Rfam assigns this 92-nucleotide RNA from Prunus yedoensis to the family "MIR6288 microRNA precursor family".
[Rfam]
RNA sequence: CCAAAACUAGCCACUUGUUCUUUUUUAAUUGGUUCUUAGUGUGUUAAAAUUUUCUAAGAACCAAUUAGAAAAUAACACAUGGCUAGUUUUGG
Numbered sequence: 001c002c003a004a005a006a007c008u009a010g011c012c013a014c015u016u017g018u019u020c021u022u023u024u025u026u027a028a029u030u031g032g033u034u035c036u037u038a039g040u041g042u043g044u045u046a047a048a049a050u051u052u053u054c055u056a057a058g059a060a061c062c063a064a065u066u067a068g069a070a071a072a073u074a075a076c077a078c079a080u081g082g083c084u085a086g087u088u089u090u091g092g
Stems, first nucleotide, its partner, number of pairs: 002091012016077004021072019
Dot-bracket structure: .((((((((((((..((((.(((((((((((((((((((..............))))))))))))))))))).))))..)))))))))))).
Its family is annotated with miRNA-mediated post-transcriptional gene silencing and RISC complex in the Gene Ontology.